[Rfam]
RNA sequence: GGCAUCCUGCUCCCUUCGAAGCCUUGCGUUCCUACGCGAGGGGUUGAUGUAGAAGAAGCGGGAUGCU
Numbered sequence: 001g002g003c004a005u006c007c008u009g010c011u012c013c014c015u016u017c018g019a020a021g022c023c024u025u026g027c028g029u030u031c032c033u034a035c036g037c038g039a040g041g042g043g044u045u046g047a048u049g050u051a052g053a054a055g056a057a058g059c060g061g062g063a064u065g066c067u
Stems, first nucleotide, its partner, number of pairs: 001067011013055001015054003022041008
Shown here is a 67-nucleotide sequence, a member of the family "DUF3800-VIII RNA".